[Rfam]
RNA sequence: ACCUAUGAUGCGUUGCCCAAAAUGUGAGAUGCAGGUUUCUCCAAGUCCCUGUUAGUCAGGGAGAACCUACUUGGGGGGCCUACAUUAUAAUGAGAUUAAUGGGCUGUUACUGAGGU
Numbered sequence: 001a002c003c004u005a006u007g008a009u010g011c012g013u014u015g016c017c018c019a020a021a022a023u024g025u026g027a028g029a030u031g032c033a034g035g036u037u038u039c040u041c042c043a044a045g046u047c048c049c050u051g052u053u054a055g056u057c058a059g060g061g062a063g064a065a066c067c068u069a070c071u072u073g074g075g076g077g078g079c080c081u082a083c084a085u086u087a088u089a090a091u092g093a094g095a096u097u098a099a100u101g102g103g104c105u106g107u108u109a110c111u112g113a114g115g116u
Stems, first nucleotide, its partner, number of pairs: 001116003047061005
Source information:
The family of this 116-nucleotide RNA from Oryza meridionalis is "Small nucleolar RNA Z278". The family's RNA type in Rfam is C/D-box small nucleolar RNA. snoZ278 is a C/D box small nucleolar RNA. Its methylation guide targets have not been reported. The family has 7 seed sequences and 1,130 matches in Rfam 15.1.